[Rfam]
RNA sequence: GUCAACUACCCCGCCCUAAAGGACGGAGCUUGUCAAAGCGAGGUUGACCAGACUCAGCACUCGAAAGAGUGCUACGCCAUACCGAGGUCGUUAAGACUUACCAGCAGAUGCUUCCUGAGUCUGCUGCUCUAAAAGGCUUUAAUCAUGCUGGGGAAAGGUAAAGCCCCGAAGGUUUUAGUCGUGGCUGGCCACAGCCAGAGCCGCGGGGUGGCCUUGUCGAAGGGAGAUGGU
Numbered sequence: 001g002u003c004a005a006c007u008a009c010c011c012c013g014c015c016c017u018a019a020a021g022g023a024c025g026g027a028g029c030u031u032g033u034c035a036a037a038g039c040g041a042g043g044u045u046g047a048c049c050a051g052a053c054u055c056a057g058c059a060c061u062c063g064a065a066a067g068a069g070u071g072c073u074a075c076g077c078c079a080u081a082c083c084g085a086g087g088u089c090g091u092u093a094a095g096a097c098u099u100a101c102c103a104g105c106a107g108a109u110g111c112u113u114c115c116u117g118a119g120u121c122u123g124c125u126g127c128u129c130u131a132a133a134a135g136g137c138u139u140u141a142a143u144c145a146u147g148c149u150g151g152g153g154a155a156a157g158g159u160a161a162a163g164c165c166c167c168g169a170a171g172g173u174u175u176u177a178g179u180c181g182u183g184g185c186u187g188g189c190c191a192c193a194g195c196c197a198g199a200g201c202c203g204c205g206g207g208g209u210g211g212c213c214u215u216g217u218c219g220a221a222g223g224g225a226g227a228u229g230g231u
Base pairs, nucleotide, nucleotide: 001048002047003046004045005044006043007042010028012025013024015022016021029038030037031036051218052217053216056073057072058071059070060069076212077211078210079209080208082206083205084204086202098132099131102126103125104124105123106122107121108120109119110228112226113225114224115223116222135180136179137178138177141174142173143172144171149168150167151166152165153164
Source information: The family of this 231-nucleotide RNA from Thioploca ingrica is "HNH endonuclease-associated RNA and ORF (HEARO) RNA". A search with the family's covariance model found it, with a score of 94 bits. For this family Rfam cites "Exceptional structured noncoding RNAs revealed by bacterial metagenome analysis" (Weinberg et al., Nature, 2009). The family has 139 seed sequences and 952 matches in Rfam 15.1.